[Rfam]
A member of the RNA family "Exoribonuclease-resistant RNA (xrRNA) plant-infecting virus (class 3)" from Polerovirus PABYV, 51 nucleotides long. Rfam classes the family as a cis-regulatory element. On this family, see Gezelle et al., bioRxiv [Preprint] 2024: "The pseudoknot structure of a viral RNA reveals a conserved mechanism for programmed exoribonuclease resistance". Its family is annotated with viral RNA genome replication in the Gene Ontology. From the family's description: Exoribonuclease-resistant RNA (xrRNA) plant-infecting virus (class 3) is a ncRNA that was reported in Plant viruses.
RNA sequence: AAAGCCAGCCGAGUCAGACUUGUUGCAAACGUCGGAGGCUUAAGUCAAGCA
Dot-bracket structure: [[......[[..[[....((((......]]...]]....]]....))))..